Rfam assigns this 45-nucleotide RNA sequence from Mycolicibacterium thermoresistibile to the family "Mycobacterium sRNA Ms_AS-5". It is one of the family's seed sequences. On this family, see Li et al., RNA 2013: "Identification of small RNAs in Mycobacterium smegmatis using heterologous Hfq".
RNA sequence: AUCCGGGUAGUGCCCGGUGAAGAUGGUCGGCCGACUGGGCACACA
Numbered sequence: 001a002u003c004c005g006g007g008u009a010g011u012g013c014c015c016g017g018u019g020a021a022g023a024u025g026g027u028c029g030g031c032c033g034a035c036u037g038g039g040c041a042c043a044c045a
Base pairs, nucleotide, nucleotide: 012032014030015029016028017027018026